RNA sequence: AACUAUUUGCGGGGGGACUUUAAAAAGUUGAGAAGGAUAAAACCUGACCCUUUGAACCUGUUAGCUAAUACUGACGUAGGGAGCAAAUCAUCUACUUAU
Numbered sequence: 001a002a003c004u005a006u007u008u009g010c011g012g013g014g015g016g017a018c019u020u021u022a023a024a025a026a027g028u029u030g031a032g033a034a035g036g037a038u039a040a041a042a043c044c045u046g047a048c049c050c051u052u053u054g055a056a057c058c059u060g061u062u063a064g065c066u067a068a069u070a071c072u073g074a075c076g077u078a079g080g081g082a083g084c085a086a087a088u089c090a091u092c093u094a095c096u097u098a099u
Stems, first nucleotide, its partner, number of pairs: 006087005011051004016045001017028004035044002057080004061074004
This 99-nucleotide sequence from Clostridium cavendishii belongs to the Rfam family "TPP riboswitch aptamer (THI element)". The source organism's lineage runs through Bacteria, Bacillati, Clostridia, Clostridium and Clostridium cavendishii. The family's consensus secondary structure is taken from published work.